[Rfam]
Annotation
A member of the RNA family "c-di-GMP-I riboswitch aptamer" from Paenibacillus psychroresistens, 93 nucleotides long.
RNA sequence: UAUCGAAAAAGGCAAACCCGUUGAAAGACGGUGACGCAAAGCCAUGGAUCUAAUACUUUCGACUUUGAAAGAGAUGAUUGCCAGGUUCCCGAA
Dot-bracket structure: ...........((....(((((....)))))....))..((((.((((((.....((((((....))))))....)))..)))))))......
Taxonomically the source falls in Paenibacillus (Bacteria, Bacillati, Bacillota, Paenibacillaceae).
A search with the family's covariance model found it, with a score of 74 bits.